[Rfam]
RNA sequence: GGUCAUGAGCGUCAACGUCAAGCCCUGGCUGGUUGACCGGCAACCCUCGCAUCGCGGUGGGGUGCCCCAGGUGACGACCGGAUCGGGAAUGUCCCGAUAAGCGUGAUGG
Numbered sequence: 001g002g003u004c005a006u007g008a009g010c011g012u013c014a015a016c017g018u019c020a021a022g023c024c025c026u027g028g029c030u031g032g033u034u035g036a037c038c039g040g041c042a043a044c045c046c047u048c049g050c051a052u053c054g055c056g057g058u059g060g061g062g063u064g065c066c067c068c069a070g071g072u073g074a075c076g077a078c079c080g081g082a083u084c085g086g087g088a089a090u091g092u093c094c095c096g097a098u099a100a101g102c103g104u105g106a107u108g109g
Stems, first nucleotide, its partner, number of pairs: 001079004009038001011037006021030002039066003044062003048057001082098007
RNA: SAM (S-adenosyl methionine) riboswitch aptamer
Organism: Gordonia polyisoprenivorans